[Rfam]
RNA sequence: AUGCAUCUAUUUGACAGACCUGGAGUAGUUACUAUUUGCUAGUAAGGUUUCCAGGUGCAAGAAAAAUGAAUCCUCUCCCUGUCUGUCUCUCUGACUGUGGCAGCCAGGAUUGAAUUGGGGAAUACAGUA
Number, nucleotide and partner (000 for none) at each position: 001a000002u059003g058004c057005a056006u055007c054008u053009a000010u000011u000012u000013g052014a000015c000016a050017g049018a048019c047020c046021u000022g000023g000024a040025g039026u038027a037028g036029u000030u000031a000032c000033u000034a000035u000036u028037u027038g026039c025040u024041a000042g000043u000044a000045a000046g020047g019048u018049u017050u016051c000052c013053a008054g007055g006056u005057g004058c003059a002060a000061g000062a000063a000064a000065a000066a000067u000068g000069a000070a000071u121072c120073c119074u118075c117076u000077c000078c000079c112080u000081g000082u109083c108084u107085g000086u000087c103088u102089c000090u100091c099092u000093g000094a000095c000096u000097g000098u000099g091100g090101c000102a088103g087104c000105c000106a000107g084108g083109a082110u000111u000112g079113a000114a000115u000116u000117g075118g074119g073120g072121a071122a000123u000124a000125c000126a000127g000128u000129a000
Small nucleolar RNA SNORA31: a 129-nucleotide sequence from Rhinolophus ferrumequinum. ACA31 (SNORA31) belongs to the H/ACA class of snoRNAs which are thought to guide the sites of modification of uridines to pseudouridines. ACA31 is predicted to guide the pseudouridylation of U3713 in 28S rRNA and U218 in 18S rRNA. This family includes the mouse homologue snoMBI-161. The match comes from Rfam's covariance-model search (42 bits). The source organism's lineage runs through Eukaryota, Chordata, Tetrapoda, Amniota and Rhinolophus. The family has 5 seed sequences and 2,094 matches in Rfam 15.1.